[Rfam]
RNA sequence: AGAGAAGUUCAAGGCCACAGCAGAAGUACUCAUGGUGCAGUCCUGUCAGGUUCCAAAGAAUCUGUGAAUUGUAUU
Numbered sequence: 001a002g003a004g005a006a007g008u009u010c011a012a013g014g015c016c017a018c019a020g021c022a023g024a025a026g027u028a029c030u031c032a033u034g035g036u037g038c039a040g041u042c043c044u045g046u047c048a049g050g051u052u053c054c055a056a057a058g059a060a061u062c063u064g065u066g067a068a069u070u071g072u073a074u075u
Stems, first nucleotide, its partner, number of pairs: 013043002015040001019075002022072001024070002026038003047064007
The family of this 75-nucleotide RNA from Alligator mississippiensis is "Mammalian CPEB3 ribozyme". A search with the family's covariance model found it, with a score of 49 bits.